[Rfam]
The family of this 106-nucleotide RNA sequence from Bacillus sp. FJAT-18017 is "TPP riboswitch aptamer (THI element)".
RNA sequence: UACUUCCACAAGGGGAGCUGUUAAAAGCGGCUGAGAGUGAACGUUUAGUUCUUACCCUUUGAACCUGUUAGUUAACGCUAGCGUAGGGAUGUGGCAUGCCGAAUGU
Numbered sequence: 001u002a003c004u005u006c007c008a009c010a011a012g013g014g015g016a017g018c019u020g021u022u023a024a025a026a027g028c029g030g031c032u033g034a035g036a037g038u039g040a041a042c043g044u045u046u047a048g049u050u051c052u053u054a055c056c057c058u059u060u061g062a063a064c065c066u067g068u069u070a071g072u073u074a075a076c077g078c079u080a081g082c083g084u085a086g087g088g089a090u091g092u093g094g095c096a097u098g099c100c101g102a103a104u105g106u
Stems, first nucleotide, its partner, number of pairs: 006094005011058004016052001017031005039051004064087004068081004

The family's consensus secondary structure is taken from published work. Rfam links the family to the GO term thiamine pyrophosphate binding.